The record is a 242-nucleotide RNA sequence from Lysinibacillus odysseyi, which matches "T-box leader" in Rfam. It scores 140 bits against the family's covariance model. Rfam's curators write: Uncharged tRNA acts as the effector for transcription antitermination of genes in the T-box leader family. The family's RNA type in Rfam is cis-regulatory leader. Taxonomically the source falls in Lysinibacillus odysseyi (Bacteria, Bacillati, Bacilli, Caryophanales).
RNA sequence: CAAAAUUCGUUGACGAGAAAGAGUAGUGUUUCAUUUUGUUCUACAGAGAGCCGGUAUUUUGGUGGAAGCCGGUGUGCAGAUGUUACAUGAAAAUCCUCUCCGAGAAGAUUGACCGAACGUGUGAGUAGGUCAAUCCGGGUGUCUACCGUUAAAAGGAACGCGUAUGAUUGUACGUCGCUGAGUGCUAUUGGAACGUUUUCAAUAGAAUUAGGGUGGUAUCGCGGGUUAACCCCGUCCCUUGC
Numbered sequence: 001c002a003a004a005a006u007u008c009g010u011u012g013a014c015g016a017g018a019a020a021g022a023g024u025a026g027u028g029u030u031u032c033a034u035u036u037u038g039u040u041c042u043a044c045a046g047a048g049a050g051c052c053g054g055u056a057u058u059u060u061g062g063u064g065g066a067a068g069c070c071g072g073u074g075u076g077c078a079g080a081u082g083u084u085a086c087a088u089g090a091a092a093a094u095c096c097u098c099u100c101c102g103a104g105a106a107g108a109u110u111g112a113c114c115g116a117a118c119g120u121g122u123g124a125g126u127a128g129g130u131c132a133a134u135c136c137g138g139g140u141g142u143c144u145a146c147c148g149u150u151a152a153a154a155g156g157a158a159c160g161c162g163u164a165u166g167a168u169u170g171u172a173c174g175u176c177g178c179u180g181a182g183u184g185c186u187a188u189u190g191g192a193a194c195g196u197u198u199u200c201a202a203u204a205g206a207a208u209u210a211g212g213g214u215g216g217u218a219u220c221g222c223g224g225g226u227u228a229a230c231c232c233c234g235u236c237c238c239u240u241g242c
Stems, first nucleotide, its partner, number of pairs: 007105002015100004026088004039076001041074001050073006108134007136148003185205007210239004221235005